[Rfam]
Notes:
Eukaryotic small subunit ribosomal RNA: a 165-nucleotide part of an RNA from Diversispora epigaea. A search with the family's covariance model found it, with a score of 1816 bits. The family is grouped with related families in Rfam's "SSU clan". The organism belongs to Diversispora, within Eukaryota. Rfam 15.1 lists 75,755 matches to the family in 2,556 species.
RNA sequence: CCGCCCGUCGCUACUACCGAUUGAAUGGCUUAGUGAGACCUUUGGAUUGGGGUUUAAGAAUCGGCAACGAAUUUUAUUCUCCGAGAAGUCGGUCAAACUUGGUCAUUUAGAGGAAGUAAAAGUCGUAACAAGGUUUCCGUAGGUGAACCUGCGGAAGGAUCAUUA
Numbered sequence: 001c002c003g004c005c006c007g008u009c010g011c012u013a014c015u016a017c018c019g020a021u022u023g024a025a026u027g028g029c030u031u032a033g034u035g036a037g038a039c040c041u042u043u044g045g046a047u048u049g050g051g052g053u054u055u056a057a058g059a060a061u062c063g064g065c066a067a068c069g070a071a072u073u074u075u076a077u078u079c080u081c082c083g084a085g086a087a088g089u090c091g092g093u094c095a096a097a098c099u100u101g102g103u104c105a106u107u108u109a110g111a112g113g114a115a116g117u118a119a120a121a122g123u124c125g126u127a128a129c130a131a132g133g134u135u136u137c138c139g140u141a142g143g144u145g146a147a148c149c150u151g152c153g154g155a156a157g158g159a160u161c162a163u164u165a
Stems, first nucleotide, its partner, number of pairs: 001132001003129001006125002009122001012118004017113002021109001023108008032099003037094004043088001047084006055076003059072001061070002134157010